[Rfam]
RNA sequence: AUGUUCCUUCAGGGCAGGGUGAAAUUCCCGACCGGCGGUAUUGGUGUUAACCAGAGUCCGCAAGCCGCAAGGCAGAUCCGGUGCGAAACCGGGACCGACAGUAAAGUCUGGAUGGAAGAAGGAUGAU
Numbered sequence: 001a002u003g004u005u006c007c008u009u010c011a012g013g014g015c016a017g018g019g020u021g022a023a024a025u026u027c028c029c030g031a032c033c034g035g036c037g038g039u040a041u042u043g044g045u046g047u048u049a050a051c052c053a054g055a056g057u058c059c060g061c062a063a064g065c066c067g068c069a070a071g072g073c074a075g076a077u078c079c080g081g082u083g084c085g086a087a088a089c090c091g092g093g094a095c096c097g098a099c100a101g102u103a104a105a106g107u108c109u110g111g112a113u114g115g116a117a118g119a120a121g122g123a124u125g126a127u
Stems, first nucleotide, its partner, number of pairs: 005123006017029003031107002033097002035061004056095002064073003077093005099110003
Description
Shown here is a 127-nucleotide RNA sequence from Sporolactobacillus laevolacticus, a member of the family "FMN riboswitch aptamer (RFN element)". For this family Rfam cites "Regulation of riboflavin biosynthesis and transport genes in bacteria by transcriptional and translational attenuation" (Vitreschak et al., Nucleic Acids Res, 2002). About the family: The RFN element is a highly conserved domain that is found frequently in the 5'-untranslated regions of prokaryotic mRNAs that encode for flavin mononucleotide (FMN) biosynthesis and transport proteins. This element is a metabolite-dependent riboswitch that directly binds FMN in the absence of proteins. In Bacillus subtilis, the riboswitch most likely controls gene expression by causing premature transcription termination within the 5' untranslated region of the ribDEAHT operon and precluding access to the ribosome-binding site of ypaA mRNA.The FMN riboswitch structure, reported in present an FMN-bound six-stem junction, adopts a butterfly-like scaffold, stapled together by opposingly directed but nearly identically folded peripheral domains. A search with the family's covariance model found it, with a score of 114 bits. Lineage of the source: Bacteria > Bacillati > Bacillota > Sporolactobacillaceae > Sporolactobacillus laevolacticus. Its family is annotated with FMN binding in the Gene Ontology. The base pairs follow the family's consensus structure, which is taken from published work.